[Rfam]
RNA sequence: CAAACCGAUGCAGGAGAGCGCUACACCGUACUACAUCAACUGUACGGCAAGCCGCCGAAGGCGCAGACACCCUUAAAUCGCUCAGGCAAAAGGACUGCAUUUCAUCA
Dot-bracket structure: ......(((((((......(((...........................))).(((((..(((...(......)....))))).))).......)))))))......
Record summary: The family of this 107-nucleotide sequence from Neisseria animaloris is "Glycine riboswitch aptamer". It scores 54 bits against the family's covariance model. On this family, see Mandal et al., Science 2004: "A glycine-dependent riboswitch that uses cooperative binding to control gene expression".